[Rfam]
RNA sequence: UCUUUGAAGUGUACUAGAACAUAUGAGUAGUUGUUGGAUUUAUCCAAAACCAAAGCAUACACGAUGAAGAAUAAA
Numbered sequence: 001u002c003u004u005u006g007a008a009g010u011g012u013a014c015u016a017g018a019a020c021a022u023a024u025g026a027g028u029a030g031u032u033g034u035u036g037g038a039u040u041u042a043u044c045c046a047a048a049a050c051c052a053a054a055g056c057a058u059a060c061a062c063g064a065u066g067a068a069g070a071a072u073a074a075a
Base pairs, nucleotide, nucleotide: 001073003071004070005069009062010061011060012059013058022057024055030050031049032048035046036045